RNA: U4atac minor spliceosomal RNA
RNA sequence: AUCUUCCUUGUCUUGGGGAGCAGAAAUGUCCAAUGAACGUCUAGUGAGGACAUUGCUGCUGACACCAAUGAUAUAACAAAAAACCCCCGUUCGCUGAUCUUCGAUCGGCGCUCGGAAUUUUUGGAAAUAGACUCCCUUACUUUAUAGGGGGUCGU
Numbered sequence: 001a002u003c004u005u006c007c008u009u010g011u012c013u014u015g016g017g018g019a020g021c022a023g024a025a026a027u028g029u030c031c032a033a034u035g036a037a038c039g040u041c042u043a044g045u046g047a048g049g050a051c052a053u054u055g056c057u058g059c060u061g062a063c064a065c066c067a068a069u070g071a072u073a074u075a076a077c078a079a080a081a082a083a084c085c086c087c088c089g090u091u092c093g094c095u096g097a098u099c100u101u102c103g104a105u106c107g108g109c110g111c112u113c114g115g116a117a118u119u120u121u122u123g124g125a126a127a128u129a130g131a132c133u134c135c136c137u138u139a140c141u142u143u144a145u146a147g148g149g150g151g152u153c154g155u
Stems, first nucleotide, its partner, number of pairs: 005019005020059004025054007037045002087115003094108006